[Rfam]
RNA sequence: AUUGAAAUAGCAAACCCAAGGAGACUUGGGGACGCAAAGCCACGGGUCCUAUGCGGAUAGCCGGGUUGCCGAAG
Numbered sequence: 001a002u003u004g005a006a007a008u009a010g011c012a013a014a015c016c017c018a019a020g021g022a023g024a025c026u027u028g029g030g031g032a033c034g035c036a037a038a039g040c041c042a043c044g045g046g047u048c049c050u051a052u053g054c055g056g057a058u059a060g061c062c063g064g065g066u067u068g069c070c071g072a073a074g
Stems, first nucleotide, its partner, number of pairs: 002071001010035002015030006033060001038067004043063003046058003
c-di-GMP-I-GGC riboswitch aptamer: a 74-nucleotide RNA from Desulfuromusa kysingii. Its Rfam clan is "c-di-GMP_I riboswitch clan". A search with the family's covariance model found it, with a score of 60 bits. Lineage of the source: Bacteria > Thermodesulfobacteriota > Desulfuromonadia > Desulfuromonadales > Desulfuromusa.